[Rfam]
RNA sequence: ACGAUGUUGGCCAUUUACGGUCAGGGCUAACUGUUGCCUGAAGAAGGAUAA
Dot-bracket structure: ........((((......)))).............................

A member of the RNA family "algC RNA" from Salmonella enterica, 51 nucleotides long. It is annotated as a cis-regulatory element. Rfam's curators put it in the seed alignment.